[Rfam]
RNA sequence: AAUAAUUCGACAGGGGCGACCUGAGAACACAUGUUAAGAUACAAAUCAUCAAAUUAAAAAAGAAACGUGGUAACAUGUGAUCUCAAGUUGCCCCUAUUGAAUACAU
Numbered sequence: 001a002a003u004a005a006u007u008c009g010a011c012a013g014g015g016g017c018g019a020c021c022u023g024a025g026a027a028c029a030c031a032u033g034u035u036a037a038g039a040u041a042c043a044a045a046u047c048a049u050c051a052a053a054u055u056a057a058a059a060a061a062g063a064a065a066c067g068u069g070g071u072a073a074c075a076u077g078u079g080a081u082c083u084c085a086a087g088u089u090g091c092c093c094c095u096a097u098u099g100a101a102u103a104c105a106u
Stems, first nucleotide, its partner, number of pairs: 007100002012095003016091004023084004028079005
RNA: MIR398 microRNA precursor family